Shown here is a 61-nucleotide sequence from Salibacter halophilus, a member of the family "S15-Flavobacteria ribosomal protein leader". It is annotated as a cis-regulatory leader.

[Rfam]
RNA sequence: UAUAUUUGCGGCUUCGAUUACGGUCGAAAUACAUAAAAAUCAUUUAAAUAAUAUUGGCAUG
Numbered sequence: 001u002a003u004a005u006u007u008g009c010g011g012c013u014u015c016g017a018u019u020a021c022g023g024u025c026g027a028a029a030u031a032c033a034u035a036a037a038a039a040u041c042a043u044u045u046a047a048a049u050a051a052u053a054u055u056g057g058c059a060u061g
Base pairs, nucleotide, nucleotide: 014027015026016025017024018023
Pairs were carried over by alignment from the consensus structure, which is taken from published work. A reference for the family is Eckert and Weinberg (2020), "Discovery of 20 novel ribosomal leader candidates in bacteria and archaea", BMC Microbiol.